About this RNA
The record is a 146-nucleotide sequence from Oceanobacillus limi, which matches "FMN riboswitch aptamer (RFN element)" in Rfam.
Nucleotides: 146
Stems, first nucleotide, its partner, number of pairs: 004143007017029003031126002033115002035063004058113002067090004095111005117129003
Number, partner (000 for none) and nucleotide at each position: 001000u002000u003000c004143c005142a006141u007140c008139u009138u010137c011000g012000g013000g014000g015000c016000a017029g018028g019027g020000u021000g022000c023000a024000a025000u026000u027019c028018c029017c030000g031126a032125c033115c034114g035063a036062c037061g038060g039000u040000a041000a042000g043000g044000a045000a046000c047000u048000u049000u050000u051000g052000u053000u054000c055000u056000a057000a058113g059112u060038c061037c062036g063035u064000g065000a066000c067090c068089c069088g070087c071000c072000a073000a074000g075000u076000a077000g078000u079000u080000c081000u082000a083000c084000u085000u086000a087070g088069c089068g090067g091000c092000u093000g094000a095111u096110c097109c098108g099107g100000u101000g102000u103000a104000a105000a106000u107099c108098c109097g110096g111095g112059a113058c114034c115033g116000a117129c118128a119127g120000u121000u122000a123000c124000a125032g126031u127119c128118u129117g130000g131000a132000u133000g134000g135000g136000a137010g138009a139008a140007g141006a142005u143004g144000u145000c146000g